[Rfam]
RNA: transfer-messenger RNA
Organism: Hymenobacter polaris
RNA sequence: GGGGAUGACCGGAAUUGACAGCUUGUGCAUGUCGCGGGUAAGCGUGCCGGGAGGUGGUGGAAGCUCUCCCGCUAAAAAAUCUACCAAACAACAACUGGCGAGUAUAGCUACGCCAUGGCUGCCUAGUUUAGAACUACGCACGUCAUCGUGCCGCCCGGGCUUUUCCAUUGCGCCCGGGAGUUCGGCGCGUCGUAAGUAACGGAUAGCCUGCCGAGAGCCGUGAUUGGCAGGCGAAACUCAACUGCGGAUAAGGACGCGCUAUAGGCCUGGCUGGUGCCCGGCGCGUCACGAAUAAAAUAAGCCUGACUACGCACGUAGAAAGCACGUCGGCCUCCUUGUCUGGACCAGGGUUCGAAUCCCUGCAUCUCCACUG
Number, nucleotide and partner (000 for none) at each position: 001g369002g368003g367004g366005a365006u364007g363008a000009c000010c000011g000012g000013a000014a000015u000016u000017g000018a000019c342020a341021g340022c000023u338024u000025g336026u000027g334028c000029a000030u000031g331032u330033c329034g328035c326036g325037g000038g323039u322040a000041a000042g000043c315044g314045u313046g312047c311048c071049g070050g069051g068052a067053g000054g000055u000056g085057g084058u083059g082060g081061a080062a000063g000064c000065u000066c000067u052068c051069c050070c049071g048072c000073u000074a000075a000076a000077a000078a000079a000080u061081c060082u059083a058084c057085c056086a000087a000088a000089c000090a000091a000092c000093a000094a000095c000096u000097g000098g000099c000100g000101a000102g000103u000104a000105u000106a000107g000108c000109u000110a000111c000112g000113c000114c000115a000116u000117g000118g000119c000120u140121g139122c138123c000124u136125a135126g134127u133128u000129u000130a000131g000132a000133a127134c126135u125136a124137c000138g122139c121140a120141c000142g000143u000144c000145a000146u000147c189148g188149u187150g186151c185152c184153g000154c178155c177156c176157g175158g000159g173160c172161u170162u000163u203164u202165c201166c000167a000168u198169u000170g161171c000172g160173c159174c000175c157176g156177g155178g154179a000180g000181u000182u000183c000184g152185g151186c150187g149188c148189g147190u000191c000192g000193u000194a000195a000196g000197u000198a168199a000200c000201g165202g164203a163204u000205a000206g232207c231208c230209u229210g228211c227212c226213g225214a224215g000216a249217g000218c247219c246220g245221u244222g000223a000224u214225u213226g212227g211228c210229a209230g208231g207232c206233g000234a000235a000236a000237c000238u000239c000240a000241a000242c000243u000244g221245c220246g219247g218248a000249u216250a000251a000252g000253g287254a286255c285256g284257c283258g282259c281260u280261a000262u000263a000264g278265g277266c276267c000268u000269g307270g000271c305272u000273g000274g000275u299276g266277c265278c264279c000280g260281g259282c258283g257284c256285g255286u254287c253288a000289c000290g000291a000292a000293u000294a000295a000296a000297a000298u000299a275300a000301g000302c000303c000304u000305g271306a000307c269308u000309a000310c000311g047312c046313a045314c044315g043316u000317a000318g000319a000320a000321a000322g039323c038324a000325c036326g035327u000328c034329g033330g032331c031332c000333u000334c027335c000336u025337u000338g023339u000340c021341u020342g019343g000344a000345c000346c362347a361348g360349g359350g358351u000352u000353c000354g000355a000356a000357u000358c350359c349360c348361u347362g346363c007364a006365u005366c004367u003368c002369c001370a000371c000372u000373g000